[Rfam]
A member of the RNA family "Guanidine-I riboswitch aptamer" from Actinoplanes sp. ATCC 53533, 102 nucleotides long. It scores 78 bits against the family's covariance model.
RNA sequence: GUGAGGCGCGCCUAGGGUUCCGCCGCAUCCGGUGCGGGCUGGUCCGAGAGGUGCAGGCGUUCGCGUGCGAGCGUUCCACGGCGGGACAAAAGCCCGGGAGGA
Numbered sequence: 001g002u003g004a005g006g007c008g009c010g011c012c013u014a015g016g017g018u019u020c021c022g023c024c025g026c027a028u029c030c031g032g033u034g035c036g037g038g039c040u041g042g043u044c045c046g047a048g049a050g051g052u053g054c055a056g057g058c059g060u061u062c063g064c065g066u067g068c069g070a071g072c073g074u075u076c077c078a079c080g081g082c083g084g085g086a087c088a089a090a091a092g093c094c095c096g097g098g099a100g101g102a
Base pairs, nucleotide, nucleotide: 008054009053010052011051012050015045016044020042021041022039023037024036025035026034027033028032056075057074058073059072060071061070062069063068077097079100083095084094085093
The pairing is the family consensus, mapped onto this sequence.